[Rfam]
Overview: Rfam assigns this 381-nucleotide sequence from Bacillus mesophilum to the family "Bacterial RNase P class B". It is annotated as a ribozyme. Its Rfam clan is "RNaseP clan". It scores 342 bits against the family's covariance model. NCBI's taxonomy places the organism under Bacteria, Bacillota, Bacilli, Caryophanales, Bacillus. Ribonuclease P (RNase P) is a ubiquitous endoribonuclease, found in archaea, bacteria and eukarya as well as chloroplasts and mitochondria. Its best characterised activity is the generation of mature 5'-ends of tRNAs by cleaving the 5'-leader elements of precursor-tRNAs. Cellular RNase Ps are ribonucleoproteins. RNA from bacterial RNase Ps retains its catalytic activity in the absence of the protein subunit, i.e. it is a ribozyme.
RNA sequence: ACGUUCGGGUAAUCGCUGCAAUUUUCAUUGUAGAGGAAAGUCCAUGCUCGCACUGGCUGAGAUGCCGGUAGUGUUCGUGCCUAGCGAAGUCAUAAGCUAGGGCAGUGUCAAAGCUGACGGCAGGGAAAACACCUAAGUCAUUCCUUGAUAUGGUGUGAAUACCUUGAAAGUGCCACAGUGACGUAGCCUUUUCAGAAAUGAAAAGGGUGGAACGAGGUAAACCCCACGAGCGAGAAACCCAAAUUAUGGUAGGGGCACUUUCUCUGAGAAAAUGAACGAAGAGAAGGACAAACAUAUAUAUGUUUGUAGAUAGAUGAUUACCACCUAUGUACGAGACUGAAGUCGUUUGCAGUACAAUGGUACAAAACAUGGCUUACAGAA
Numbered sequence: 001a002c003g004u005u006c007g008g009g010u011a012a013u014c015g016c017u018g019c020a021a022u023u024u025u026c027a028u029u030g031u032a033g034a035g036g037a038a039a040g041u042c043c044a045u046g047c048u049c050g051c052a053c054u055g056g057c058u059g060a061g062a063u064g065c066c067g068g069u070a071g072u073g074u075u076c077g078u079g080c081c082u083a084g085c086g087a088a089g090u091c092a093u094a095a096g097c098u099a100g101g102g103c104a105g106u107g108u109c110a111a112a113g114c115u116g117a118c119g120g121c122a123g124g125g126a127a128a129a130c131a132c133c134u135a136a137g138u139c140a141u142u143c144c145u146u147g148a149u150a151u152g153g154u155g156u157g158a159a160u161a162c163c164u165u166g167a168a169a170g171u172g173c174c175a176c177a178g179u180g181a182c183g184u185a186g187c188c189u190u191u192u193c194a195g196a197a198a199u200g201a202a203a204a205g206g207g208u209g210g211a212a213c214g215a216g217g218u219a220a221a222c223c224c225c226a227c228g229a230g231c232g233a234g235a236a237a238c239c240c241a242a243a244u245u246a247u248g249g250u251a252g253g254g255g256c257a258c259u260u261u262c263u264c265u266g267a268g269a270a271a272a273u274g275a276a277c278g279a280a281g282a283g284a285a286g287g288a289c290a291a292a293c294a295u296a297u298a299u300a301u302g303u304u305u306g307u308a309g310a311u312a313g314a315u316g317a318u319u320a321c322c323a324c325c326u327a328u329g330u331a332c333g334a335g336a337c338u339g340a341a342g343u344c345g346u347u348u349g350c351a352g353u354a355c356a357a358u359g360g361u362a363c364a365a366a367a368c369a370u371g372g373c374u375u376a377c378a379g380a381a
Stems, first nucleotide, its partner, number of pairs: 004381003007377001008322007016033006038375003042372005047234005052069006075229005080101006102118001103116004119224002122164003130155004137149003170222002172218003187206008238254003258287007288307008324360002328356005